[Rfam]
A member of the RNA family "Small nucleolar RNA SNORD26" from Amazona collaria, 70 nucleotides long. On this family, see Tycowski et al., Nature 1996: "A mammalian gene with introns instead of exons generating stable RNA products". Rfam links the family to the GO terms RNA processing and nucleolus. Clan: SNORD26 clan.
RNA sequence: CUGCGGGGAUGAUCCCUGGAACUCUCUCUUCCUGACCGCGCUGGAGAAGCAACAUCAGGCUCUGAGUGGC
Numbered sequence: 001c002u003g004c005g006g007g008g009a010u011g012a013u014c015c016c017u018g019g020a021a022c023u024c025u026c027u028c029u030u031c032c033u034g035a036c037c038g039c040g041c042u043g044g045a046g047a048a049g050c051a052a053c054a055u056c057a058g059g060c061u062c063u064g065a066g067u068g069g070c
Stems, first nucleotide, its partner, number of pairs: 001069004